[Rfam]
RNA sequence: GCCAAAUGAUGUAAAACAGAUAUAGCAUAGCACACAGUGCAAAGAUGACUUACAUCUAUCACCCAAUACUGAUGGCU
Dot-bracket structure: ((((.........................((((...))))................................)))).
Numbered sequence: 001g002c003c004a005a006a007u008g009a010u011g012u013a014a015a016a017c018a019g020a021u022a023u024a025g026c027a028u029a030g031c032a033c034a035c036a037g038u039g040c041a042a043a044g045a046u047g048a049c050u051u052a053c054a055u056c057u058a059u060c061a062c063c064c065a066a067u068a069c070u071g072a073u074g075g076c077u
Stems, first nucleotide, its partner, number of pairs: 001076004030040004